[Rfam]
RNA sequence: GGUAGUAGCAAAUAUUCAAACGAGAACUUUGUAGGCCGAAGUGAAGGGUUCCACGUGAACAGCAGUUGAACAUGGGUCAAUCGGUCCUAAGAGAUAGGUGACUGCCAUUCCGAAGGGACGGGCAAUGGCCUCUGUUGCCCUCAGCCGAUGGAAAGGGAGUCGGGUUCAGAUCCCCGAAUCCAGAGUGGCAGAGAUGGGCGCCUCACAGCGUCCAGUGCAAUAAUGCAAACGAUCCCGGAGAAGCCGAGAGGAGCCCCGAGAGAGUUCUCUUUUCUUUGUGAAGGGCAGGGCACCCUGGUAUGGUUUGACCCGAGAGAGGGACCCGUGACUUGGAAAAUGUCACGGUUCCAGCAACGUCCAGUGAGCUCUCGUUGGCCCUUGAAAAUCUGGGAGAGAUGGUGUAAAUCUCACGCUGGGCCGCACCCAUAUCCGUAGCAGGUCUCCAAGGUGAACAGCCUCUGGCAUAU
Numbered sequence: 001g002g003u004a005g006u007a008g009c010a011a012a013u014a015u016u017c018a019a020a021c022g023a024g025a026a027c028u029u030u031g032u033a034g035g036c037c038g039a040a041g042u043g044a045a046g047g048g049u050u051c052c053a054c055g056u057g058a059a060c061a062g063c064a065g066u067u068g069a070a071c072a073u074g075g076g077u078c079a080a081u082c083g084g085u086c087c088u089a090a091g092a093g094a095u096a097g098g099u100g101a102c103u104g105c106c107a108u109u110c111c112g113a114a115g116g117g118a119c120g121g122g123c124a125a126u127g128g129c130c131u132c133u134g135u136u137g138c139c140c141u142c143a144g145c146c147g148a149u150g151g152a153a154a155g156g157g158a159g160u161c162g163g164g165u166u167c168a169g170a171u172c173c174c175c176g177a178a179u180c181c182a183g184a185g186u187g188g189c190a191g192a193g194a195u196g197g198g199c200g201c202c203u204c205a206c207a208g209c210g211u212c213c214a215g216u217g218c219a220a221u222a223a224u225g226c227a228a229a230c231g232a233u234c235c236c237g238g239a240g241a242a243g244c245c246g247a248g249a250g251g252a253g254c255c256c257c258g259a260g261a262g263a264g265u266u267c268u269c270u271u272u273u274c275u276u277u278g279u280g281a282a283g284g285g286c287a288g289g290g291c292a293c294c295c296u297g298g299u300a301u302g303g304u305u306u307g308a309c310c311c312g313a314g315a316g317a318g319g320g321a322c323c324c325g326u327g328a329c330u331u332g333g334a335a336a337a338u339g340u341c342a343c344g345g346u347u348c349c350a351g352c353a354a355c356g357u358c359c360a361g362u363g364a365g366c367u368c369u370c371g372u373u374g375g376c377c378c379u380u381g382a383a384a385a386u387c388u389g390g391g392a393g394a395g396a397u398g399g400u401g402u403a404a405a406u407c408u409c410a411c412g413c414u415g416g417g418c419c420g421c422a423c424c425c426a427u428a429u430c431c432g433u434a435g436c437a438g439g440u441c442u443c444c445a446a447g448g449u450g451a452a453c454a455g456c457c458u459c460u461g462g463c464a465u466a467u
Stems, first nucleotide, its partner, number of pairs: 015033001017031004035463003043441001046424002051075003055071002060068002082420003086156002092149001093109003097106003117142002160177005180416004208408001210406001211404001216227004234391006243376004250369005256361001258359001259277005282331003286327001293320004299314001301312003338356003343351001430439002446458004